[Rfam]
Nucleotides: 137
Base pairs, nucleotide, nucleotide: 003135004134005133006132007131008130009129010128017029018028019027033086034085035048036047037046038045043084044083051062052061053060066082067081068080069079070078088120089119090118
Number, partner (000 for none) and nucleotide at each position: 001000a002000g003135a004134u005133g006132u007131c008130u009129u010128c011000a012000g013000g014000g015000c016000a017029g018028g019027g020000u021000g022000a023000a024000a025000a026000u027019c028018c029017c030000g031000a032000u033086c034085g035048g036047c037046g038045g039000u040000a041000c042000a043084g044083u045038c046037c047036g048035c049000g050000a051062g052061c053060c054000g055000g056000a057000a058000a059000c060053g061052g062051c063000a064000g065000a066082c067081c068080c069079g070078g071000u072000g073000c074000a075000a076000c077000u078070c079069c080068g081067g082066g083044a084043c085034c086033g087000a088120c089119a090118g091000u092000g093000a094000c095000g096000c097000g098000c099000a100000u101000a102000u103000c104000c105000c106000a107000g108000g109000g110000c111000g112000c113000g114000a115000a116000g117000u118090c119089u120088g121000g122000a123000u124000g125000a126000a127000a128010g129009a130008a131007g132006a133005u134004g135003u136000g137000u
The family of this 137-nucleotide RNA sequence from Flavonifractor plautii is "FMN riboswitch aptamer (RFN element)". A search with the family's covariance model found it, with a score of 100 bits. Taxonomically the source falls in Flavonifractor plautii (Bacteria, Eubacteriales, Oscillospiraceae, Flavonifractor). The base pairs follow the family's consensus structure, which is taken from published work.